[Rfam]
RNA: Small nucleolar RNA U6-53/MBII-28
Organism: Nannospalax galili
RNA sequence: UCCCAAUGAUGAGUUGCCAUGCUAAUACUGAUCCCAGCCAGGCUGUGCUGCCAGGUUUGGGUGUCAGUGAGUUUAAUAAAACUUCUCAUGUGGAGACCUGAGGGAC
Dot-bracket structure: ((((..................................(.(((......))).)...............................................)))).